This 147-nucleotide RNA sequence from Citrobacter koseri belongs to the Rfam family "Molybdenum/Tungsten riboswitch aptamer (Moco RNA motif)".
The literature on the family includes a 2008 paper in Mol Microbiol by Regulski et al., "in molybdenum cofactor and tungsten cofactor metabolism".
[Rfam]
RNA sequence: UGCUUAAAAAGACACUCUAGCCUCUACGCCUGUGUCAAAUUGAUAUGGUGUUUUGGCCGUGACAAGCCUCGAAAGAGUUUGCCACCAGGGCGCAGGAAGAAAUGACUCCGCCUCCCGUAUUUGGAAAGGUGUACAUGGCCUCACAAC
Numbered sequence: 001u002g003c004u005u006a007a008a009a010a011g012a013c014a015c016u017c018u019a020g021c022c023u024c025u026a027c028g029c030c031u032g033u034g035u036c037a038a039a040u041u042g043a044u045a046u047g048g049u050g051u052u053u054u055g056g057c058c059g060u061g062a063c064a065a066g067c068c069u070c071g072a073a074a075g076a077g078u079u080u081g082c083c084a085c086c087a088g089g090g091c092g093c094a095g096g097a098a099g100a101a102a103u104g105a106c107u108c109c110g111c112c113u114c115c116c117g118u119a120u121u122u123g124g125a126a127a128g129g130u131g132u133a134c135a136u137g138g139c140c141u142c143a144c145a146a147c
Base pairs, nucleotide, nucleotide: 012132013131014130015129017128020057021056022055026051027050028049029048030047034044035043036042037041059085060084061083063081064080065079066078067077088113089112090111091110092109094107095106098103114124115123